Annotation: Iron response element II: a 32-nucleotide sequence from Bos taurus. About the family: IRE, TFRC, SLC40A1, SDHB, SLC11A2, CDC42BPA, ACO2, ALAS2_H.SAPIENS, CDC14A, EPAS1, ALAS2, qoxD, Hao1, NDUFS1, transferrin, Aconitate. Rfam links the family to the GO term response to iron ion. The family's RNA type in Rfam is cis-regulatory element.
RNA sequence: AUGCAAUCUGUAGCAGUGUCUGACAACUGCAA
Numbered sequence: 001a002u003g004c005a006a007u008c009u010g011u012a013g014c015a016g017u018g019u020c021u022g023a024c025a026a027c028u029g030c031a032a
Stems, first nucleotide, its partner, number of pairs: 002031004007026001009025003012021002014018001